[Rfam]
RNA sequence: GGGAGGUGUGCUAUCGUCUUCCCCGGGAGGUGUGAUCCUGUUCUUCCUGAGAGGUGUGAUCCUGUGCUCCCU
Numbered sequence: 001g002g003g004a005g006g007u008g009u010g011c012u013a014u015c016g017u018c019u020u021c022c023c024c025g026g027g028a029g030g031u032g033u034g035a036u037c038c039u040g041u042u043c044u045u046c047c048u049g050a051g052a053g054g055u056g057u058g059a060u061c062c063u064g065u066g067c068u069c070c071c072u
Stems, first nucleotide, its partner, number of pairs: 001071005014059004020053001022051001024049006032041003
Rfam assigns this 72-nucleotide RNA sequence from Homo sapiens to the family "mir-3689 microRNA precursor family". The source organism's lineage runs through Eukaryota, Opisthokonta, Chordata, Euarchontoglires and Homo. It scores 70 bits against the family's covariance model. The family's consensus secondary structure was predicted with RNAalifold. Gene Ontology terms of the family: RISC complex and miRNA-mediated post-transcriptional gene silencing.